[Rfam]
RNA sequence: AGGCGCAGUGCGGAGGGCCACCUCGGUGUCACUUACGGCAGGAGUCGAGGGGCUGCUGCUUUGAGCGCGGCCCCCGGCUGGGCGCUGCAUCCAUGUAUUGAGCACAUCGGGCGAAAGUCCCCGGGCGACGGGGCAGAGAGUGCCAGCCCGCAAGGGCAGGACCCCCGCGCGUCGUUUUUACGACCGCGGGGCAGCUCGCCAUAGCAACAGUUAUGUGGCCAGUGGGGAUACAACCCACCAACACAACGGGGCUUACUCCCGCACUGACGCU
Dot-bracket structure: .((((...(((((..((((((.(((((((........(..((.(...........................................).))..).........)))))).)...[[[.[[[[.........((((.....)))).((((....)))).(.....(((((..((((....)))).)))))..)......................)))))).(((((.......))))).........]]]]]]]....)))))....))))